Streptomyces-metH RNA: a 129-nucleotide RNA sequence from Streptomyces dangxiongensis. A search with the family's covariance model found it, with a score of 88 bits. It is annotated as a small RNA. Lineage of the source: Bacteria > Bacillati > Actinomycetes > Streptomycetaceae > Streptomyces. Pairs were carried over by alignment from the consensus structure, which is taken from published work.
RNA sequence: CGCGUCCGUUCCGUGGACGCAGGUGCCCAUCCAAGCCCACUCCCGGCUACUCUGGCGCCGUGCGGCAACCCUGCCUGCCGGGGGAACCGCAUAGCCGACAGCCGUCGCAGCCCAGGGAGCCCCUUCAUG
Numbered sequence: 001c002g003c004g005u006c007c008g009u010u011c012c013g014u015g016g017a018c019g020c021a022g023g024u025g026c027c028c029a030u031c032c033a034a035g036c037c038c039a040c041u042c043c044c045g046g047c048u049a050c051u052c053u054g055g056c057g058c059c060g061u062g063c064g065g066c067a068a069c070c071c072u073g074c075c076u077g078c079c080g081g082g083g084g085a086a087c088c089g090c091a092u093a094g095c096c097g098a099c100a101g102c103c104g105u106c107g108c109a110g111c112c113c114a115g116g117g118a119g120c121c122c123c124u125u126c127a128u129g
Base pairs, nucleotide, nucleotide: 061091062090063089064088069084070083071082072081094108095107097106098105099104
Dot-bracket structure: ............................................................((((....((((........))))...))))..((.(((....))))).....................